[Rfam]
RNA sequence: AAAAAGGGCUUCUGCCGUGCGUGGCACGGGGCGGGGCUGCGAGCCGCCCCCCGCGGAAUCGACAUCAAGAGAUUUCGGAAGCACAAUUUUUGUUAAAGGGCAGCCGGUAACCGCUUGUUCCGGCACCCGG
Numbered sequence: 001a002a003a004a005a006g007g008g009c010u011u012c013u014g015c016c017g018u019g020c021g022u023g024g025c026a027c028g029g030g031g032c033g034g035g036g037c038u039g040c041g042a043g044c045c046g047c048c049c050c051c052c053g054c055g056g057a058a059u060c061g062a063c064a065u066c067a068a069g070a071g072a073u074u075u076c077g078g079a080a081g082c083a084c085a086a087u088u089u090u091u092g093u094u095a096a097a098g099g100g101c102a103g104c105c106g107g108u109a110a111c112c113g114c115u116u117g118u119u120c121c122g123g124c125a126c127c128c129g130g
Stems, first nucleotide, its partner, number of pairs: 008082005013026005027053005033047001035045004054077007098128003103124005109119003
The family of this 130-nucleotide sequence from Elachura formosa is "U11 spliceosomal RNA".
The base pairs follow the family's consensus structure, which is taken from published work.
The literature on the family includes a 1988 paper in Proc Natl Acad Sci U S A by Montzka and Steitz, "Additional low-abundance human small nuclear ribonucleoproteins: U11, U12, etc".
The organism belongs to Elachura, within Eukaryota.